[Rfam]
RNA: Small nucleolar RNA SNORA42/SNORA80 family
RNA sequence: GCAUAGAAUUUAUUUUUAAAGAAUAUGCUUUUUAAAAACGAUUAUGGUUUCUCAUAGUGCCUCAUGCCAGAGAAAACUGAGGCUCUGAACCACUGCCUGGCCUCUGCCUGUAGGCUGCUGGCACUGAAGCGGGUUACACAGUG
Numbered sequence: 001g002c003a004u005a006g007a008a009u010u011u012a013u014u015u016u017u018a019a020a021g022a023a024u025a026u027g028c029u030u031u032u033u034a035a036a037a038a039c040g041a042u043u044a045u046g047g048u049u050u051c052u053c054a055u056a057g058u059g060c061c062u063c064a065u066g067c068c069a070g071a072g073a074a075a076a077c078u079g080a081g082g083c084u085c086u087g088a089a090c091c092a093c094u095g096c097c098u099g100g101c102c103u104c105u106g107c108c109u110g111u112a113g114g115c116u117g118c119u120g121g122c123a124c125u126g127a128a129g130c131g132g133g134u135u136a137c138a139c140a141g142u143g
Stems, first nucleotide, its partner, number of pairs: 001067004005062002014057002017054001019052001021050003024046004081135005091126002096121002098117006